[Rfam]
Shown here is a 91-nucleotide RNA sequence from Paenibacillus sp. FSL R7-0331, a member of the family "c-di-GMP-I riboswitch aptamer". Gene Ontology term of the family: cyclic-di-GMP binding. The family has 155 seed sequences and 5,092 matches in Rfam 15.1.

RNA sequence: CAUGUAUAAUCGCAAACCGCCCGAAAGUGCGGGACGCAAAGCCAGGAGUCUACAGCCUUUGAGAGAGGGCUACGAUCGUCCGGCCGCCGUG
Number, nucleotide and partner (000 for none) at each position: 001c000002a000003u000004g000005u000006a000007u000008a000009a000010u000011c000012g037013c036014a000015a000016a000017c032018c031019g030020c029021c000022c027023g000024a000025a000026a000027g022028u000029g020030c019031g018032g017033g000034a000035c000036g013037c012038a000039a000040a000041g084042c083043c082044a000045g081046g080047a079048g076049u075050c074051u000052a000053c000054a000055g070056c069057c068058u067059u066060u065061g000062a000063g000064a000065g060066a059067g058068g057069g056070c055071u000072a000073c000074g050075a049076u048077c000078g000079u047080c046081c045082g043083g042084c041085c000086g000087c000088c000089g000090u000091g000